RNA sequence: GGUUCGGGAGCGGCGCGGUGGGACGCGCGGCACGAAUUGGACCCCGCCCCUCAUUCGCCGCCUCGCGCCGGUCGGGCCCCGACGACCGCCGC
Number, nucleotide and partner (000 for none) at each position: 001g043002g042003u041004u040005c039006g000007g000008g000009a000010g031011c030012g000013g028014c027015g026016c025017g024018g000019u000020g000021g000022g000023a000024c017025g016026c015027g014028c013029g000030g011031c010032a000033c000034g000035a000036a000037u000038u000039g005040g004041a003042c002043c001044c000045c000046g000047c000048c000049c000050c000051u000052c000053a000054u000055u000056c000057g000058c000059c000060g000061c000062c000063u000064c000065g092066c091067g090068c000069c000070g087071g086072u085073c084074g083075g000076g000077c000078c000079c000080c000081g000082a000083c074084g073085a072086c071087c070088g000089c000090c067091g066092c065

The record is a 92-nucleotide sequence from Paracoccus sp. N5, which matches "Rhodo-rpoB RNA" in Rfam. Rfam classes the family as a cis-regulatory element.